[Rfam]
RNA: Small nucleolar RNA Z155
RNA sequence: CAUUGACGUGAUGAUACCGUGUUCGGAAAAUACAAUGAUGUCGACUAAAAAACAACAGACUACAAUUAUCUGAUCAAUG
Number, nucleotide and partner (000 for none) at each position: 001c079002a078003u077004u076005g075006a074007c000008g000009u000010g000011a000012u000013g000014a000015u000016a000017c000018c000019g000020u000021g000022u000023u000024c000025g000026g000027a000028a000029a000030a000031u000032a000033c000034a000035a000036u000037g000038a000039u000040g000041u000042c000043g000044a000045c000046u000047a000048a000049a000050a000051a000052a000053c000054a000055a000056c000057a000058g000059a000060c000061u000062a000063c000064a000065a000066u000067u000068a000069u000070c000071u000072g000073a000074u006075c005076a004077a003078u002079g001